[Rfam]
RNA sequence: GUGGGGGAGCUCCGGAUCCUGGGCUGUGUCCCCCAGCGCCCUGGGCUCCCGGGCCUGCGCCGCUGGAAUCGCGCUCCCAGGGCAUGCAGCCCCUC
Numbered sequence: 001g002u003g004g005g006g007g008a009g010c011u012c013c014g015g016a017u018c019c020u021g022g023g024c025u026g027u028g029u030c031c032c033c034c035a036g037c038g039c040c041c042u043g044g045g046c047u048c049c050c051g052g053g054c055c056u057g058c059g060c061c062g063c064u065g066g067a068a069u070c071g072c073g074c075u076c077c078c079a080g081g082g083c084a085u086g087c088a089g090c091c092c093c094u095c
Stems, first nucleotide, its partner, number of pairs: 001095001003093004009087002011084001013082001018081002021077003025073004029067002033065001034062001036060004043055001045054003

A member of the RNA family "mir-8799 microRNA precursor family" from Nyctereutes procyonoides, 95 nucleotides long. Lineage of the source: Eukaryota > Opisthokonta > Metazoa > Euteleostomi > Nyctereutes.